This 94-nucleotide sequence from Halomonas sp. PA5 belongs to the Rfam family "TPP riboswitch aptamer (THI element)". The family's consensus secondary structure is taken from published work.
RNA sequence: CUCUUGCGACAGGGGCGCCGACGAAAGCGGCUGAGAAGCACCCUUCGAACCUGACCCGGAUAAUGCCGGCGUAGGGAGUCGCACGGGCCUCCCG
Number, nucleotide and partner (000 for none) at each position: 001c000002u000003c000004u000005u000006g082007c081008g080009a079010c078011a044012g043013g042014g041015g000016c038017g031018c030019c029020g028021a000022c000023g000024a000025a000026a000027g000028c020029g019030g018031c017032u000033g000034a000035g000036a000037a000038g016039c000040a000041c014042c013043c012044u011045u000046c000047g000048a000049a000050c075051c074052u073053g072054a000055c000056c069057c068058g067059g066060a000061u000062a000063a000064u000065g000066c059067c058068g057069g056070c000071g000072u053073a052074g051075g050076g000077a000078g010079u009080c008081g007082c006083a000084c000085g000086g000087g000088c000089c000090u000091c000092c000093c000094g000